[Rfam]
RNA: Small nucleolar RNA snoR74
RNA sequence: AAAAAAGCUGUGGCGUAUUUCUUUUACUACGCCUCGGUAAAACUUCAGGGAUAUAAAUAUAUAUACAUUGUUAUUGGGUGAAUCUCUUGAAAUGUUCAUGAUAGAUGGUUCAGUAAAUGAUGUUACAUAA
Numbered sequence: 001a002a003a004a005a006a007g008c009u010g011u012g013g014c015g016u017a018u019u020u021c022u023u024u025u026a027c028u029a030c031g032c033c034u035c036g037g038u039a040a041a042a043c044u045u046c047a048g049g050g051a052u053a054u055a056a057a058u059a060u061a062u063a064u065a066c067a068u069u070g071u072u073a074u075u076g077g078g079u080g081a082a083u084c085u086c087u088u089g090a091a092a093u094g095u096u097c098a099u100g101a102u103a104g105a106u107g108g109u110u111c112a113g114u115a116a117a118u119g120a121u122g123u124u125a126c127a128u129a130a
Base pairs, nucleotide, nucleotide: 005045006044007043012033014031015030016029017028065123066122067121068120069119070118071117072116079112080111081110082109083108084107